A member of the RNA family "Small nucleolar RNA snR191" from Torulaspora globosa, 276 nucleotides long. Clan: SNORA74 clan. The family's consensus secondary structure was predicted with WAR. On this family, see Badis et al., RNA 2003: "A snoRNA that guides the two most conserved pseudouridine modifications within rRNA confers a growth advantage in yeast". Gene Ontology terms of the family: RNA processing and nucleolus.

[Rfam]
RNA sequence: UACCAAAACUCUUUGUCAGGGUGCUCUCUGCCGCACUUGCUUUGCAAGUGCAAUCCACGAGAGGGCCUGUUACAGUUUUGGAAGAGCAAUAUUGCCCGCUCAUCCGUUAUUCUUCGUUUUGAAGAAGUUGGGAUGAUAGAAGGACAACUUUCGUUUUGAAAGUACACCUUCGCUAAUGGGCAAUGAAGACCUUCCAGAGUUGAGCCUUUGUUGAUGAAAAGCAUACUCUGCGUCUUCAUCCUCGUACAAUUGCUCGUAGUAUAGGACUUCACAUUC
Number, nucleotide and partner (000 for none) at each position: 001u000002a000003c081004c080005a079006a078007a077008a000009c000010u000011c000012u000013u000014u000015g000016u000017c000018a000019g068020g067021g066022u065023g000024c063025u062026c061027u060028c059029u000030g045031c044032c000033g042034c000035a000036c000037u000038u000039g000040c000041u000042u033043u000044g031045c030046a000047a000048g000049u000050g000051c000052a000053a000054u000055c000056c000057a000058c000059g028060a027061g026062a025063g024064g000065g022066c021067c020068u019069g000070u000071u000072a000073c000074a000075g000076u000077u007078u006079u005080g004081g003082a000083a000084g000085a000086g000087c000088a000089a000090u000091a000092u183093u182094g181095c180096c179097c178098g000099c000100u136101c135102a134103u133104c132105c131106g000107u000108u000109a000110u126111u125112c124113u123114u122115c121116g000117u000118u000119u000120u000121g115122a114123a113124g112125a111126a110127g000128u000129u000130g000131g105132g104133a103134u102135g101136a100137u000138a000139g171140a170141a169142g168143g167144a000145c000146a000147a163148c162149u161150u160151u159152c158153g157154u000155u000156u000157u153158g152159a151160a150161a149162g148163u147164a000165c000166a000167c143168c142169u141170u140171c139172g000173c000174u000175a000176a000177u000178g097179g096180g095181c094182a093183a092184u000185g270186a269187a268188g267189a000190c265191c264192u263193u000194c000195c000196a000197g000198a000199g000200u000201u256202g255203a254204g253205c252206c000207u000208u249209u248210g247211u246212u000213g000214a239215u238216g237217a236218a235219a000220a233221g000222c000223a000224u000225a000226c000227u000228c000229u000230g000231c000232g000233u220234c000235u218236u217237c216238a215239u214240c000241c000242u000243c000244g000245u000246a211247c210248a209249a208250u000251u000252g205253c204254u203255c202256g201257u000258a000259g000260u000261a000262u000263a192264g191265g190266a000267c188268u187269u186270c185271a000272c000273a000274u000275u000276c000